[Rfam]
RNA sequence: CACAUUAGCGCGCUUUGCUGACGUGGCAACAAAUAGCUCUUACGUGGACGCUAUUUGUUGCCACGUCAGCAAAACACACUGACGUGG
Dot-bracket structure: (((.((((.(.(.((((((((.(((((((((((((((..((....))..))))))))))))))).)))))))).).).)))).))).
RNA: MIR7486 microRNA precursor family
Organism: Gossypium mustelinum